This 145-nucleotide RNA from Neorhizobium sp. SOG26 belongs to the Rfam family "Alphaproteobacterial sRNA ar7". For this family Rfam cites "A survey of sRNA families in alpha-proteobacteria" (del Val et al., RNA Biol, 2012). The match comes from Rfam's covariance-model search (98 bits).
RNA sequence: UACCGGCGCCUGAUCACGCCGCAGUCUGGAAGCUGGCCUGUCCCCUGCCGCGCCAGACCGGGCAAAGGCCUAUCCCCCUCUCCGGGCCUUUGUCCAUCAAUCGAACCGCCAUGGCCGAUUCCCCUCCCGGUCAUGGCGGUUUUUG
Numbered sequence: 001u002a003c004c005g006g007c008g009c010c011u012g013a014u015c016a017c018g019c020c021g022c023a024g025u026c027u028g029g030a031a032g033c034u035g036g037c038c039u040g041u042c043c044c045c046u047g048c049c050g051c052g053c054c055a056g057a058c059c060g061g062g063c064a065a066a067g068g069c070c071u072a073u074c075c076c077c078c079u080c081u082c083c084g085g086g087c088c089u090u091u092g093u094c095c096a097u098c099a100a101u102c103g104a105a106c107c108g109c110c111a112u113g114g115c116c117g118a119u120u121c122c123c124c125u126c127c128c129g130g131u132c133a134u135g136g137c138g139g140u141u142u143u144u145g
Base pairs, nucleotide, nucleotide: 025057026056027055028054029053035049036048037047060095061094062093063092064091065090066089067088068087069086070085103141106139107138108137109136110135111134112133113132114131115130116129117128